[Rfam]
RNA: MIR4371 microRNA precursor family
RNA sequence: CCGUUAUGUGAUGAUGUGACAGAUGGAGUGCCAUGUCAUCACGCCUUAUCACAAACAACUCAUUGUCAUGUCAUCGCCUUCAAUGAUGUGGCACUGACGUGUUAGUGAUUAGGCGUGAUGACGAGGCACUCCGUCUACCAUGUCAUUACUUGACAGAA
Numbered sequence: 001c002c003g004u005u006a007u008g009u010g011a012u013g014a015u016g017u018g019a020c021a022g023a024u025g026g027a028g029u030g031c032c033a034u035g036u037c038a039u040c041a042c043g044c045c046u047u048a049u050c051a052c053a054a055a056c057a058a059c060u061c062a063u064u065g066u067c068a069u070g071u072c073a074u075c076g077c078c079u080u081c082a083a084u085g086a087u088g089u090g091g092c093a094c095u096g097a098c099g100u101g102u103u104a105g106u107g108a109u110u111a112g113g114c115g116u117g118a119u120g121a122c123g124a125g126g127c128a129c130u131c132c133g134u135c136u137a138c139c140a141u142g143u144c145a146u147u148a149c150u151u152g153a154c155a156g157a158a
Stems, first nucleotide, its partner, number of pairs: 001156001003154004008149011021136012034123013048109005054103004070087005